RNA: Bacterial large subunit ribosomal RNA, nucleotides 2267 to 2852
RNA sequence: CCCGCAGCAGGACGGAAAGACCCCGGGACCUUUACUAUAGCUUGGUAUUGGUGUUCGGUUCGGCUUGUGUAGGAUAGGUGGGAGACUGUGAAGCUGUCACGCCAGUGGCGGUGGAGUCAACGUUGAAAUACCACUCUGGUCGUACUGGAUAUCUAACCUCGGUCCGUGAUCCGGAUCAGGGACAGUGCCUGGUGGGUAGUUUAACUGGGGCGGUUGCCUCCUAAAAGGUAACGGAGGCGCCCAAAGGUUCCCUCAGCCUGGUUGGCAAUCAGGCGGCGAGUGCAAGUGCACAAGGGAGCUUGACUGUGAGACCGACGGGUCGAACAGGUACGAAAGUAGGGACUAGUGAUCCGGCAGUGGCUUGUGGAAGCGCUGUCGCUCAACGGAUAAAAGGUACCCCGGGGAUAACAGGCUGAUCCUGCCCAAGAGUCCAUAUCGACGGCAUGGUUUGGCACCUCGAUGUCGGCUCGUCGCAUCCUGGGGCCGUAGCAGGUCCCAAGGGUUGGGCUGUUCGCCCAUUAAAGCGGUACGCGAGCUGGGUUUAGAACGUCGUGAGACAGUUCGGUCCCUAUCCGCUGCGGGCGCA
Number, nucleotide and partner (000 for none) at each position: 001c582002c581003c580004g579005c578006a577007g576008c575009a000010g574011g573012a572013c000014g569015g568016a000017a000018a000019g000020a000021c000022c403023c402024c401025g400026g399027g398028a395029c394030c393031u392032u391033u000034a200035c199036u198037a197038u000039a000040g000041c192042u191043u000044g189045g188046u187047a186048u000049u000050g153051g152052u151053g150054u149055u148056c147057g146058g145059u144060u000061c142062g141063g140064c139065u138066u000067g136068u000069g000070u000071a000072g000073g000074a000075u000076a000077g135078g134079u133080g132081g131082g000083a000084g118085a117086c116087u000088g000089u000090g000091a000092a000093g112094c111095u110096g109097u108098c107099a106100c105101g000102c000103c000104a000105g100106u099107g098108g097109c096110g095111g094112u093113g000114g000115a000116g086117u085118c084119a000120a000121c000122g000123u000124u000125g000126a000127a000128a000129u000130a000131c081132c080133a079134c078135u077136c067137u000138g065139g064140u063141c062142g061143u000144a059145c058146u057147g056148g055149a054150u053151a052152u051153c050154u000155a000156a000157c180158c179159u178160c000161g177162g176163u175164c174165c173166g172167u000168g000169a000170u000171c000172c166173g165174g164175a163176u162177c161178a159179g158180g157181g000182a000183c000184a000185g000186u047187g046188c045189c044190u000191g042192g041193u000194g000195g000196g000197u037198a036199g035200u034201u000202u000203a215204a214205c213206u212207g000208g000209g000210g000211c000212g206213g205214u204215u203216g238217c237218c236219u235220c234221c233222u000223a000224a000225a000226a000227g000228g000229u000230a000231a000232c000233g221234g220235a219236g218237g217238c216239g384240c000241c341242c340243a000244a000245a000246g000247g299248u298249u297250c296251c295252c294253u279254c278255a000256g274257c273258c272259u271260g270261g269262u000263u000264g000265g000266c000267a000268a000269u261270c260271a259272g258273g257274c256275g000276g000277c000278g254279a253280g289281u288282g000283c000284a000285a000286g000287u000288g281289c280290a000291c000292a000293a000294g252295g251296g250297a249298g248299c247300u000301u000302g000303a000304c327305u326306g325307u324308g000309a000310g321311a320312c319313c000314g000315a000316c000317g000318g000319g312320u311321c310322g000323a000324a307325c306326a305327g304328g000329u338330a337331c336332g000333a000334a000335a000336g331337u330338a329339g000340g242341g241342a000343c000344u000345a000346g000347u000348g000349a000350u000351c000352c378353g377354g376355c375356a374357g373358u372359g000360g371361c370362u000363u000364g000365u000366g000367g000368a000369a000370g361371c360372g358373c357374u356375g355376u354377c353378g352379c000380u000381c000382a000383a000384c239385g000386g000387a000388u000389a000390a000391a032392a031393g030394g029395u028396a000397c000398c027399c026400c025401g024402g023403g022404g000405a000406u000407a000408a000409c000410a000411g000412g453413c452414u451415g000416a450417u447418c446419c000420u444421g443422c442423c441424c000425a000426a000427g437428a436429g000430u000431c000432c000433a000434u000435a000436u428437c427438g000439a000440c000441g423442g422443c421444a420445u000446g418447g417448u000449u000450u416451g414452g413453c412454a000455c000456c000457u000458c000459g000460a000461u000462g000463u000464c539465g537466g536467c535468u534469c531470g528471u527472c526473g525474c524475a000476u000477c502478c501479u000480g497481g496482g495483g494484c493485c492486g000487u000488a000489g000490c000491a000492g485493g484494u483495c482496c481497c480498a000499a000500g000501g478502g477503u000504u518505g517506g516507g515508c514509u000510g000511u000512u000513c000514g508515c507516c506517c505518a504519u000520u000521a000522a000523a000524g474525c473526g472527g471528u470529a000530c000531g469532c000533g000534a468535g467536c466537u465538g000539g464540g000541u000542u000543u000544a000545g563546a562547a561548c560549g558550u557551c556552g000553u000554g000555a000556g551557a550558c549559a000560g548561u547562u546563c545564g000565g000566u000567c000568c015569c014570u000571a000572u012573c011574c010575g008576c007577u006578g005579c004580g003581g002582g001583c000584g000585c000586a000